Shown here is an 81-nucleotide RNA sequence from Cottoperca gobio, a member of the family "mir-363 microRNA precursor family". The family has 22 seed sequences and 620 matches in Rfam 15.1. On this family, see Linsen et al., BMC Genomics 2010: "Small RNA expression and strain specificity in the rat". Its family is annotated with RISC complex and miRNA-mediated post-transcriptional gene silencing in the Gene Ontology. A search with the family's covariance model found it, with a score of 60 bits.
RNA sequence: GCUGUUUUCAGAUGGAUGACUUCACAAUUUCAAUACUAGACAAAAUAAAAGAAAUUGCACAGUAUCCAUCUGCAAGCCGCC
Numbered sequence: 001g002c003u004g005u006u007u008u009c010a011g012a013u014g015g016a017u018g019a020c021u022u023c024a025c026a027a028u029u030u031c032a033a034u035a036c037u038a039g040a041c042a043a044a045a046u047a048a049a050a051g052a053a054a055u056u057g058c059a060c061a062g063u064a065u066c067c068a069u070c071u072g073c074a075a076g077c078c079g080c081c
Stems, first nucleotide, its partner, number of pairs: 009072009019063002025057007